[Rfam]
RNA: MIR403 microRNA precursor family
Organism: Vitis rotundifolia
RNA sequence: ACAAACCUCGAGUUUGUGCGCGAAUCCAACCCCCUCAAUCUUCUAUCAAAGGGUGUUAGAUUCACGCACAAACUCGGGAUCUGUCU
Numbered sequence: 001a002c003a004a005a006c007c008u009c010g011a012g013u014u015u016g017u018g019c020g021c022g023a024a025u026c027c028a029a030c031c032c033c034c035u036c037a038a039u040c041u042u043c044u045a046u047c048a049a050a051g052g053g054u055g056u057u058a059g060a061u062u063c064a065c066g067c068a069c070a071a072a073c074u075c076g077g078g079a080u081c082u083g084u085c086u
Stems, first nucleotide, its partner, number of pairs: 001084003005080001007078001011074010022063005028057003032053004